mir-5928 microRNA precursor family: a 75-nucleotide RNA sequence from Haemonchus placei. Pairs were carried over by alignment from the consensus structure, which was predicted with RNAalifold. The family has 5 seed sequences and 1,672 matches in Rfam 15.1. The organism belongs to Haemonchus, within Eukaryota. Its family is annotated with miRNA-mediated post-transcriptional gene silencing and RISC complex in the Gene Ontology.
[Rfam]
RNA sequence: GGCCCAAAUUUGAAGUAGGGUAGAUUAGUAGGAUCAUCCAACCAUACUGAUUUACUCUAUUUCAAGUUUGUACCC
Numbered sequence: 001g002g003c004c005c006a007a008a009u010u011u012g013a014a015g016u017a018g019g020g021u022a023g024a025u026u027a028g029u030a031g032g033a034u035c036a037u038c039c040a041a042c043c044a045u046a047c048u049g050a051u052u053u054a055c056u057c058u059a060u061u062u063c064a065a066g067u068u069u070g071u072a073c074c075c
Stems, first nucleotide, its partner, number of pairs: 001074002005070005011064013025050006032043001034041001